This 131-nucleotide RNA from Acidovorax sp. belongs to the Rfam family "Glycine riboswitch aptamer". A search with the family's covariance model found it, with a score of 58 bits.
RNA sequence: CGUUUCCUUGCUGGAGAGAGAUGGACCGCCGGUCACACCGCGCGCGGCACCCAUCCACCGAAGGAGCAAGCCGCACGGCCAGCCAGGGCGCUGCGGUGAAUCUCUCAGGUAAAGCGGACAGCAGGGCAAAU
Numbered sequence: 001c002g003u004u005u006c007c008u009u010g011c012u013g014g015a016g017a018g019a020g021a022u023g024g025a026c027c028g029c030c031g032g033u034c035a036c037a038c039c040g041c042g043c044g045c046g047g048c049a050c051c052c053a054u055c056c057a058c059c060g061a062a063g064g065a066g067c068a069a070g071c072c073g074c075a076c077g078g079c080c081a082g083c084c085a086g087g088g089c090g091c092u093g094c095g096g097u098g099a100a101u102c103u104c105u106c107a108g109g110u111a112a113a114g115c116g117g118a119c120a121g122c123a124g125g126g127c128a129a130a131u
Stems, first nucleotide, its partner, number of pairs: 006126008020055004057110003060106002064104003070097006

The family is grouped with related families in Rfam's "Glycine riboswitch clan". This family represents the bacterial glycine riboswitch.